[Rfam]
RNA: Small nucleolar RNA J33
Organism: Phoenix dactylifera
RNA sequence: CAGUUAGGGGAAUGAUGUACUACCGAAGAGCUUUGAAGCUACAGGCUUUUCUUGACAUGGCUUCUGAAAGAGGUAAUAAUUC
Dot-bracket structure: .(((((......................................................................))))).
Numbered sequence: 001c002a003g004u005u006a007g008g009g010g011a012a013u014g015a016u017g018u019a020c021u022a023c024c025g026a027a028g029a030g031c032u033u034u035g036a037a038g039c040u041a042c043a044g045g046c047u048u049u050u051c052u053u054g055a056c057a058u059g060g061c062u063u064c065u066g067a068a069a070g071a072g073g074u075a076a077u078a079a080u081u082c
Stems, first nucleotide, its partner, number of pairs: 002081005